Overview:
The family of this 74-nucleotide RNA from Bartonella bacilliformis is "tRNA". Rfam classes the family as a transfer RNA. Taxonomically the source falls in Bartonella bacilliformis (Bacteria, Pseudomonadati, Hyphomicrobiales, Bartonella).

[Rfam]
RNA sequence: GCGGUUGUAGCUCAGCUGGUUAGAGCGCUGGUUUGUGGCACCAGAGGUCGUAGGUUCAAAUCCCACCAACCGUA
Numbered sequence: 001g002c003g004g005u006u007g008u009a010g011c012u013c014a015g016c017u018g019g020u021u022a023g024a025g026c027g028c029u030g031g032u033u034u035g036u037g038g039c040a041c042c043a044g045a046g047g048u049c050g051u052a053g054g055u056u057c058a059a060a061u062c063c064c065a066c067c068a069a070c071c072g073u074a
Stems, first nucleotide, its partner, number of pairs: 001073007010026004028044005050066002053063002
A search with the family's covariance model found it, with a score of 68 bits. Its family is annotated with triplet codon-amino acid adaptor activity in the Gene Ontology.